[Rfam]
The family of this 105-nucleotide sequence from Maledivibacter halophilus is "pan motif". The source organism's lineage runs through Bacteria, Bacillota, Clostridia, Caminicellaceae and Maledivibacter. The base pairs follow the family's consensus structure, which is taken from published work. A search with the family's covariance model found it, with a score of 60 bits. It is annotated as a cis-regulatory element.
Nucleotides: 105
Stems, first nucleotide, its partner, number of pairs: 001030003004026005010021002070101003073097003077093001080091002
Number, partner (000 for none) and nucleotide at each position: 001030u002029g003028g004026g005025u006024a007023g008022u009000a010021u011020c012000a013000u014000g015000u016000a017000u018000a019000u020011g021010a022008a023007c024006u025005a026004u027000a028003c029002c030001a031000u032000a033000u034000u035000a036000u037000a038000u039000u040000u041000a042000a043000a044000u045000c046000u047000u048000a049000a050000a051000a052000c053000u054000a055000a056000a057000u058000a059000g060000u061000u062000u063000u064000a065000u066000u067000a068000a069000u070101c071100u072099g073097c074096u075095c076000u077093g078000a079000g080091c081090c082000u083000u084000u085000a086000u087000u088000a089000u090081g091080g092000a093077c094000c095075g096074a097073g098000a099072c100071a101070g102000a103000a104000g105000a